[Rfam]
RNA sequence: AAAGAUAAAGGCAAACCUGCCGAAAGACAGGGACGCAAAGCGAUGGGCCUGCCCGGGAAACCGAAUGGCUGCCACGCCGCCGGAC
Numbered sequence: 001a002a003a004g005a006u007a008a009a010g011g012c013a014a015a016c017c018u019g020c021c022g023a024a025a026g027a028c029a030g031g032g033a034c035g036c037a038a039a040g041c042g043a044u045g046g047g048c049c050u051g052c053c054c055g056g057g058a059a060a061c062c063g064a065a066u067g068g069c070u071g072c073c074a075c076g077c078c079g080c081c082g083g084a085c
Stems, first nucleotide, its partner, number of pairs: 004081001011036002016031004021026001034071001040077003044074003047069003
RNA: c-di-GMP-I-GGC riboswitch aptamer
Organism: Bacillus sp. B-jedd